Betaproteobacteria transfer-messenger RNA: a 327-nucleotide RNA sequence from Thauera terpenica. The family is grouped with related families in Rfam's "tRNA clan". Its family is annotated with RNA catabolic process in the Gene Ontology. From the family's description: Bacterial tmRNA, also known as 10Sa RNA or SsrA, is named for its dual tRNA and mRNA-like properties. Its role is to liberate the mRNA from a stalled ribosome. Rfam classes the family as a non-coding RNA gene. The base pairs follow the family's consensus structure, which is taken from published work. A reference for the family is Williams (2002), "The tmRNA Website: invasion by an intron", Nucleic Acids Res. The source organism's lineage runs through Bacteria, Pseudomonadati, Pseudomonadota, Rhodocyclales and Thauera terpenica.

[Rfam]
RNA sequence: ACCAGUGCAACCAUUGAAUGUCGCGGCCGGCCUGCGUAAGAUGCAAGCCAUGGUUGUAAUCCCGGCAACCCGGAGGCGUUCUGGACAGGGGUUCGAUUCCCCUCACCUCCACCCAAGUGCAUUCGGGAGUGUGCUUGGGUGGGGGUGUACUGGUUUCGACAGGGCGGGCAAAGGUGCGCAGGCAACUCGAGAGGCGACGGACGUAAUCCGCGCAAAACCAUAAACGCCAACGAUGAGCGUUUCGCAGUAGCUGCAUAAGCUGACUGCCGGGGCCGCUGAAGCCUUGUAACCCAAGAAAGCCGGUGGGGACUUCGGUCCCCAUCGUCA
Numbered sequence: 001a002c003c004a005g006u007g008c009a010a011c012c013a014u015u016g017a018a019u020g021u022c023g024c025g026g027c028c029g030g031c032c033u034g035c036g037u038a039a040g041a042u043g044c045a046a047g048c049c050a051u052g053g054u055u056g057u058a059a060u061c062c063c064g065g066c067a068a069c070c071c072g073g074a075g076g077c078g079u080u081c082u083g084g085a086c087a088g089g090g091g092u093u094c095g096a097u098u099c100c101c102c103u104c105a106c107c108u109c110c111a112c113c114c115a116a117g118u119g120c121a122u123u124c125g126g127g128a129g130u131g132u133g134c135u136u137g138g139g140u141g142g143g144g145g146u147g148u149a150c151u152g153g154u155u156u157c158g159a160c161a162g163g164g165c166g167g168g169c170a171a172a173g174g175u176g177c178g179c180a181g182g183c184a185a186c187u188c189g190a191g192a193g194g195c196g197a198c199g200g201a202c203g204u205a206a207u208c209c210g211c212g213c214a215a216a217a218c219c220a221u222a223a224a225c226g227c228c229a230a231c232g233a234u235g236a237g238c239g240u241u242u243c244g245c246a247g248u249a250g251c252u253g254c255a256u257a258a259g260c261u262g263a264c265u266g267c268c269g270g271g272g273c274c275g276c277u278g279a280a281g282c283c284u285u286g287u288a289a290c291c292c293a294a295g296a297a298a299g300c301c302g303g304u305g306g307g308g309a310c311u312u313c314g315g316u317c318c319c320c321a322u323c324g325u326c327a
Base pairs, nucleotide, nucleotide: 052187053186054185055184056183062182063181065179066178068175069174070173077166078165079164080163081162082161083160087103088102089101090100091099104147105146106145107144108143109142110141188203189202270284271283272282273281275300276299277298303322304321305320306319307318308317309316310315